[Rfam]
RNA sequence: UCCAUAAGUAAUAAAAAGUUUGCUAAGGUCUCUUAACUUUAUUUAAAGUAUCAGUUUUGUUAUUUCUGUUAAUUUAAUUAAAAAAACAUUAAAUUUUGGUCCUUAACUAAUUUAAUUAGUAUUAAUUUGGUAUCUAAACUUAAUUUUUUUUAAAUUAAAUUAAUAAAAAAGAUAAAACCGAUACUUUAAAUAAAGUUAAGGGACCUAAACAGAUAUUUUAUACUUGUAGGG
Number, nucleotide and partner (000 for none) at each position: 001u000002c229003c000004a227005u226006a225007a224008g223009u000010a000011a000012u000013a000014a000015a000016a000017a000018g000019u000020u000021u000022g000023c000024u208025a000026a000027g205028g204029u203030c000031u201032c200033u199034u198035a197036a196037c195038u194039u193040u192041a191042u190043u189044u000045a187046a186047a185048g000049u000050a000051u000052c000053a000054g000055u000056u000057u000058u000059g000060u000061u000062a000063u000064u000065u000066c000067u000068g000069u000070u000071a000072a000073u000074u000075u000076a000077a000078u000079u000080a000081a000082a000083a000084a000085a000086a000087c000088a000089u000090u000091a000092a000093a000094u000095u000096u000097u000098g000099g000100u000101c000102c000103u000104u000105a000106a000107c000108u000109a000110a000111u000112u000113u000114a000115a000116u000117u000118a000119g000120u000121a000122u000123u000124a000125a000126u000127u000128u000129g000130g000131u000132a000133u000134c000135u000136a000137a000138a000139c000140u000141u000142a000143a000144u000145u000146u000147u000148u000149u000150u000151u000152a000153a000154a000155u000156u000157a000158a000159a000160u000161u000162a000163a000164u000165a000166a000167a000168a000169a000170a000171g000172a000173u000174a000175a000176a000177a000178c000179c000180g000181a000182u000183a000184c000185u047186u046187u045188a000189a043190a042191u041192a040193a039194a038195g037196u036197u035198a034199a033200g032201g031202g000203a029204c028205c027206u000207a000208a024209a000210c000211a000212g000213a000214u000215a000216u000217u000218u000219u000220a000221u000222a000223c008224u007225u006226g005227u004228a000229g002230g000231g000
RNA: MIR2655 microRNA precursor family